[Rfam]
RNA: mir-184 microRNA precursor family
Organism: Takifugu flavidus
Nucleotides: 085
Base pairs, nucleotide, nucleotide: 012074013073014072015071016070017069018068019067020066022064023063024062025061026060027059030056031055
Number, partner (000 for none) and nucleotide at each position: 001000u002000c003000a004000a005000g006000c007000u008000c009000a010000u011000c012074u013073c014072c015071u016070u017069a018068u019067c020066a021000c022064u023063u024062u025061u026060c027059c028000a029000g030056c031055c032000c033000a034000g035000c036000u037000a038000a039000c040000u041000a042000u043000u044000g045000u046000a047000a048000a049000u050000u051000u052000g053000u054000u055031g056030g057000a058000c059027g060026g061025a062024g063023a064022a065000c066020u067019g068018a069017u070016a071015a072014g073013g074012g075000u076000a077000u078000g079000u080000g081000u082000c083000u084000g085000a